[Rfam]
This 87-nucleotide RNA sequence belongs to the Rfam family "c-di-GMP-II-GAG riboswitch aptamer".
Gene Ontology terms of the family: regulation of gene expression and cyclic-di-GMP binding.
The family's consensus secondary structure is taken from published work.
Its Rfam clan is "c-di-GMP_II riboswitch clan".
The sequence is in the family's curated seed alignment.
Nucleotides: 087
Base pairs, nucleotide, nucleotide: 003085004084005083006082007081009079010078011077013062014061015060022056023055024054025053026052027051028050029049038074039073040070041069042068043067044066
Number, partner (000 for none) and nucleotide at each position: 001000c002000g003085g004084g005083u006082a007081g008000u009079g010078g011077g012000a013062g014061g015060c016000g017000u018000u019000g020000a021000a022056c023055u024054c025053c026052a027051a028050c029049c030000g031000g032000u033000a034000g035000u036000u037000c038074g039073g040070u041069c042068a043067c044066c045000g046000g047000g048000u049029g050028g051027u052026u053025g054024g055023a056022g057000u058000g059000a060015g061014c062013c063000a064000a065000u066044g067043g068042u069041g070040a071000g072000a073039c074038c075000g076000g077011c078010c079009c080000c081007c082006u083005g084004c085003c086000g087000u